[Rfam]
RNA sequence: GCCGGGCGCCGUAGCGUGUGCCUGUAAUCCCAGCUACAGCGGGAGGUUGAGGCUAGCGGAUCGCUUGAGCAUGGGAGCUCUGUGCUGCAACAGGCUGUGCCGAACGGGAGUCCGCACUAAGUACGGUACUGACAUGGUAUUUCUGGGGGAGCUCGUAAAUGCCAGGUCGUCUAAUGAGGGGUGAACCGGCCCAGGUCGGGAAUGGAGCAGGUCAAAACCCCUGUGUCACUCAGUAGUGGGACUGCUCCUGUGAGCGGACAUUGCAGUGCAGCCUUUGCAAAAGAACAAAACCCAGUCUCCU
Numbered sequence: 001g002c003c004g005g006g007c008g009c010c011g012u013a014g015c016g017u018g019u020g021c022c023u024g025u026a027a028u029c030c031c032a033g034c035u036a037c038a039g040c041g042g043g044a045g046g047u048u049g050a051g052g053c054u055a056g057c058g059g060a061u062c063g064c065u066u067g068a069g070c071a072u073g074g075g076a077g078c079u080c081u082g083u084g085c086u087g088c089a090a091c092a093g094g095c096u097g098u099g100c101c102g103a104a105c106g107g108g109a110g111u112c113c114g115c116a117c118u119a120a121g122u123a124c125g126g127u128a129c130u131g132a133c134a135u136g137g138u139a140u141u142u143c144u145g146g147g148g149g150a151g152c153u154c155g156u157a158a159a160u161g162c163c164a165g166g167u168c169g170u171c172u173a174a175u176g177a178g179g180g181g182u183g184a185a186c187c188g189g190c191c192c193a194g195g196u197c198g199g200g201a202a203u204g205g206a207g208c209a210g211g212u213c214a215a216a217a218c219c220c221c222u223g224u225g226u227c228a229c230u231c232a233g234u235a236g237u238g239g240g241a242c243u244g245c246u247c248c249u250g251u252g253a254g255c256g257g258a259c260a261u262u263g264c265a266g267u268g269c270a271g272c273c274u275u276u277g278c279a280a281a282a283g284a285a286c287a288a289a290a291c292c293c294a295g296u297c298u299c300c301u
Base pairs, nucleotide, nucleotide: 001047002046003045004023005022006021007020008019009018028044029043030042049299050298051297052296053295054294056292061288063286065284066283069278070277071276073274074273075272080271081270082269083268084267085266086265087264088263089262090261095257096256097255098254100252104251105250106249107248108247109246110245111244112240113239115238116237117236118235119234121231125227126226127225128224129223130169131168132167133166135164136163137162138161139160140159141158142157144155145154146153147152170176177222178221179220180219181218182217188213189212190211191210196205197204198203
About this RNA: Metazoan signal recognition particle RNA: a 301-nucleotide sequence from Acipenser ruthenus. Clan: SRP clan. For this family Rfam cites "SRPDB: Signal Recognition Particle Database" (Rosenblad et al., Nucleic Acids Res, 2003). The family's RNA type in Rfam is non-coding RNA gene. Lineage of the source: Eukaryota > Metazoa > Deuterostomia > Chordata > Acipenser.